Background:
The record is a 97-nucleotide RNA sequence from Nicotiana sylvestris, which matches "MIR6152 microRNA precursor family" in Rfam.
RNA sequence: UGGACAGAUUAUUGUAUUCGACUGUAUUCACGGUGUGAAACAGGAGAUUACAUUGUUUUAAAACGGAAAGUGAAUCAAUUAAACUCAAUUAUAACAC
Numbered sequence: 001u002g003g004a005c006a007g008a009u010u011a012u013u014g015u016a017u018u019c020g021a022c023u024g025u026a027u028u029c030a031c032g033g034u035g036u037g038a039a040a041c042a043g044g045a046g047a048u049u050a051c052a053u054u055g056u057u058u059u060a061a062a063a064c065g066g067a068a069a070g071u072g073a074a075u076c077a078a079u080u081a082a083a084c085u086c087a088a089u090u091a092u093a094a095c096a097c
Stems, first nucleotide, its partner, number of pairs: 009094004014089002017082002020080002023077002026075006034065003037059007
NCBI's taxonomy places the organism under Eukaryota, asterids, lamiids, Nicotianoideae, Nicotiana. The family's consensus secondary structure was predicted with RNAalifold.